[Rfam]
Streptococcus sRNA SpR20: a 45-nucleotide RNA sequence from Streptococcus pneumoniae. A reference for the family is Mann et al. (2012), "Control of virulence by small RNAs in Streptococcus pneumoniae", PLoS Pathog. The family's RNA type in Rfam is small RNA.

RNA sequence: UGGCAUAGCCCUUGUUCUCGCAGCUGUCUGGUUAGGAUGGCCCAA
Numbered sequence: 001u002g003g004c005a006u007a008g009c010c011c012u013u014g015u016u017c018u019c020g021c022a023g024c025u026g027u028c029u030g031g032u033u034a035g036g037a038u039g040g041c042c043c044a045a
Base pairs, nucleotide, nucleotide: 002010003009004008023041024040025039026038027037028036029035
Dot-bracket structure: .(((...)))............(((((((.....)))))))....